Annotation
This 65-nucleotide RNA sequence from Laticauda laticaudata belongs to the Rfam family "Small nucleolar RNA SNORD42". Its family is annotated with nucleolus and RNA processing in the Gene Ontology. The base pairs follow the family's consensus structure, which was predicted with PFOLD. From the family's description: snoRNA U42 is found in intron 3 of the ribosomal protein L23a (RPL23a) gene in humans and is also present in mice. It scores 44 bits against the family's covariance model. NCBI's taxonomy places the organism under Eukaryota, Vertebrata, Bifurcata, Episquamata, Laticauda.

RNA sequence: GUGCAGAUGAUGGUUGGAUUUUCCGACUGAGCUAAGUGAUGUGUUCAAAGGAACCUCUGAUGCAC
Dot-bracket structure: (((((.......................................................)))))